[Rfam]
RNA sequence: GUGGUUUUUUCAUAAUAGUAUUAGAUUUAAGGUUAACAAAGUGGGUUAGAGGCUGUCGUGAGAUAGCCUUUAAUUUUUUUAUA
Numbered sequence: 001g002u003g004g005u006u007u008u009u010u011c012a013u014a015a016u017a018g019u020a021u022u023a024g025a026u027u028u029a030a031g032g033u034u035a036a037c038a039a040a041g042u043g044g045g046u047u048a049g050a051g052g053c054u055g056u057c058g059u060g061a062g063a064u065a066g067c068c069u070u071u072a073a074u075u076u077u078u079u080u081a082u083a
Stems, first nucleotide, its partner, number of pairs: 051068007